[Rfam]
RNA sequence: GUGCUUUAGGGGUGAAUGAGUCCCUCAGAUUUAAUUUCCAUCUUUCACUUUGUCAGUUGCCUUUUUGGUGGCAUACUGAUCAUAAUGAGGUGGAACAUGU
Numbered sequence: 001g002u003g004c005u006u007u008a009g010g011g012g013u014g015a016a017u018g019a020g021u022c023c024c025u026c027a028g029a030u031u032u033a034a035u036u037u038c039c040a041u042c043u044u045u046c047a048c049u050u051u052g053u054c055a056g057u058u059g060c061c062u063u064u065u066u067g068g069u070g071g072c073a074u075a076c077u078g079a080u081c082a083u084a085a086u087g088a089g090g091u092g093g094a095a096c097a098u099g100u
Base pairs, nucleotide, nucleotide: 037094038093039092040091041090042089052080053079054078055077056076057075